[Rfam]
RNA sequence: GGUAGUAGCAAAAAUUCAAGCGAGAAUCUUGAGGACUGGAGUGGAGAAGGUUUCCAUGCAAACUGUGUUUGAGCAUGGGUGAGUCGAUCCUAAGAGAAUGGGUAAUUCCGUUAGAGUUGUGCUUCGGGCAUGUUCCAUCGAAAGGGAAACGGGUUAAUAUUCCCGUACCAUGAUGCGGAGUUUAAGCGGCAACGCAAACGAUCUUGGGGACAUCGGUGUGGACACUGGAGAGAGUACUCUUUUCUAAUUAACAGCACCAUCAACCAUGGAAUCAGGUUGUCUGGAGAAGUGGUGGUGUGUCUGGAAGAGCGGUGCCUUCGCGCAUCGUCUGGUUAGUUCAUAACGAUCCUUGAAAACCCGAGGGAGAAAAUCUGACUCCCGCGCAUGGUCGUACCCAGAACCGCAUCAGGUCUCCAAGGUGAGUAGCCUCGAGUCGG
Numbered sequence: 001g002g003u004a005g006u007a008g009c010a011a012a013a014a015u016u017c018a019a020g021c022g023a024g025a026a027u028c029u030u031g032a033g034g035a036c037u038g039g040a041g042u043g044g045a046g047a048a049g050g051u052u053u054c055c056a057u058g059c060a061a062a063c064u065g066u067g068u069u070u071g072a073g074c075a076u077g078g079g080u081g082a083g084u085c086g087a088u089c090c091u092a093a094g095a096g097a098a099u100g101g102g103u104a105a106u107u108c109c110g111u112u113a114g115a116g117u118u119g120u121g122c123u124u125c126g127g128g129c130a131u132g133u134u135c136c137a138u139c140g141a142a143a144g145g146g147a148a149a150c151g152g153g154u155u156a157a158u159a160u161u162c163c164c165g166u167a168c169c170a171u172g173a174u175g176c177g178g179a180g181u182u183u184a185a186g187c188g189g190c191a192a193c194g195c196a197a198a199c200g201a202u203c204u205u206g207g208g209g210a211c212a213u214c215g216g217u218g219u220g221g222a223c224a225c226u227g228g229a230g231a232g233a234g235u236a237c238u239c240u241u242u243u244c245u246a247a248u249u250a251a252c253a254g255c256a257c258c259a260u261c262a263a264c265c266a267u268g269g270a271a272u273c274a275g276g277u278u279g280u281c282u283g284g285a286g287a288a289g290u291g292g293u294g295g296u297g298u299g300u301c302u303g304g305a306a307g308a309g310c311g312g313u314g315c316c317u318u319c320g321c322g323c324a325u326c327g328u329c330u331g332g333u334u335a336g337u338u339c340a341u342a343a344c345g346a347u348c349c350u351u352g353a354a355a356a357c358c359c360g361a362g363g364g365a366g367a368a369a370a371u372c373u374g375a376c377u378c379c380c381g382c383g384c385a386u387g388g389u390c391g392u393a394c395c396c397a398g399a400a401c402c403g404c405a406u407c408a409g410g411u412c413u414c415c416a417a418g419g420u421g422a423g424u425a426g427c428c429u430c431g432a433g434u435c436g437g
Stems, first nucleotide, its partner, number of pairs: 015033006034435004043415004049395002054078006063071001085391003089145002094139002096112002100109003119131003149166005169387004174383005179377002186195003203362006212347004217342007225332003228248001231245003252303003256300002263293005272284004310327006401410002417429004
Background: Shown here is a 437-nucleotide part of an RNA from Guillardia theta, a member of the family "Eukaryotic large subunit ribosomal RNA". The source organism's lineage runs through Eukaryota, Cryptophyceae, Pyrenomonadales, Geminigeraceae and Guillardia. The sequence is in the family's curated seed alignment. Pairs were carried over by alignment from the consensus structure, which is taken from published work.